Enterococcus sRNA 68 (Lacto-3 RNA): a 135-nucleotide RNA from Carnobacterium maltaromaticum. The family's RNA type in Rfam is small RNA. Lineage of the source: Bacteria > Bacilli > Lactobacillales > Carnobacteriaceae > Carnobacterium maltaromaticum. A reference for the family is Innocenti et al. (2015), "Whole-genome mapping of 5' RNA ends in bacteria by tagged sequencing: a comprehensive view in Enterococcus faecalis", RNA.

RNA sequence: UGCGAUGAGUUGACUCAACCAGGUAACUUCGGUUAUUUCGCUGCGGCGGCUAGUGGUUGAACAAAGGCAGGGCGUUGGUACUUCGAGUACAACUACAGGAUGUAGAUGCUUAGCUCCCUCUGUAUUGUGGAAUUC
Numbered sequence: 001u002g003c004g005a006u007g008a009g010u011u012g013a014c015u016c017a018a019c020c021a022g023g024u025a026a027c028u029u030c031g032g033u034u035a036u037u038u039c040g041c042u043g044c045g046g047c048g049g050c051u052a053g054u055g056g057u058u059g060a061a062c063a064a065a066g067g068c069a070g071g072g073c074g075u076u077g078g079u080a081c082u083u084c085g086a087g088u089a090c091a092a093c094u095a096c097a098g099g100a101u102g103u104a105g106a107u108g109c110u111u112a113g114c115u116c117c118c119u120c121u122g123u124a125u126u127g128u129g130g131a132a133u134u135c
Base pairs, nucleotide, nucleotide: 017058018057019056020055021054022037023036024035025034026033027032038049039048040047041046071110072109073108074107093105094104095103096102122135124133125132126131